[Rfam]
RNA: 7SK RNA
Organism: Cuculus canorus
RNA sequence: GGAUGUGAAGUGGAUCUGGCAGUCACAUCUUUCACCGCAUUGUUUGCCAGGGCCGAUUUGGCUGAUUGGGUUGGGUGGAUGGGCGUCUCCUCCCUCCCUCCCUACUCCAUGUGUAUCCCUCCCAAAGCUGCAUGCUUGGUCAAAGAGAAUGACCUUCCUCAAUAGAGGCAAACUGUUCAUCAGUCCAAGGGUAUGUGGGAGCUGUUCUCCCUCGCCAGAACCUCCAAACAAGCUCAAGGACCCUUUGUAGGAGAACGUAGAGUGGUCAAGAUUCCAAGUGUGCAGACGCAUCCAAGUGAGGCACUGCAUGGGGCAGUCUGCCAUUGUU
Numbered sequence: 001g002g003a004u005g006u007g008a009a010g011u012g013g014a015u016c017u018g019g020c021a022g023u024c025a026c027a028u029c030u031u032u033c034a035c036c037g038c039a040u041u042g043u044u045u046g047c048c049a050g051g052g053c054c055g056a057u058u059u060g061g062c063u064g065a066u067u068g069g070g071u072u073g074g075g076u077g078g079a080u081g082g083g084c085g086u087c088u089c090c091u092c093c094c095u096c097c098c099u100c101c102c103u104a105c106u107c108c109a110u111g112u113g114u115a116u117c118c119c120u121c122c123c124a125a126a127g128c129u130g131c132a133u134g135c136u137u138g139g140u141c142a143a144a145g146a147g148a149a150u151g152a153c154c155u156u157c158c159u160c161a162a163u164a165g166a167g168g169c170a171a172a173c174u175g176u177u178c179a180u181c182a183g184u185c186c187a188a189g190g191g192u193a194u195g196u197g198g199g200a201g202c203u204g205u206u207c208u209c210c211c212u213c214g215c216c217a218g219a220a221c222c223u224c225c226a227a228a229c230a231a232g233c234u235c236a237a238g239g240a241c242c243c244u245u246u247g248u249a250g251g252a253g254a255a256c257g258u259a260g261a262g263u264g265g266u267c268a269a270g271a272u273u274c275c276a277a278g279u280g281u282g283c284a285g286a287c288g289c290a291u292c293c294a295a296g297u298g299a300g301g302c303a304c305u306g307c308a309u310g311g312g313g314c315a316g317u318c319u320g321c322c323a324u325u326g327u328u
Stems, first nucleotide, its partner, number of pairs: 001108003005102001007100002010097001013093001018090002025086002028083003032079002035074002038069001042067001044065002046062003116171001118168004122139004127135002140161001142159001147157003202270002207265002210262001212260001214258002222253004228248005295328002298324001300322003303317005